[Rfam]
RNA sequence: GAGUGAAUGAUGACAAAUAAUUAUCACAAAGAGAGAUAAUGACACAAAAAUCAUGUACAAAAGCAUUAUACUGAGACCC
Numbered sequence: 001g002a003g004u005g006a007a008u009g010a011u012g013a014c015a016a017a018u019a020a021u022u023a024u025c026a027c028a029a030a031g032a033g034a035g036a037u038a039a040u041g042a043c044a045c046a047a048a049a050a051u052c053a054u055g056u057a058c059a060a061a062a063g064c065a066u067u068a069u070a071c072u073g074a075g076a077c078c079c
Stems, first nucleotide, its partner, number of pairs: 001079001003077002006072001008070002
RNA: Small nucleolar RNA SNORD115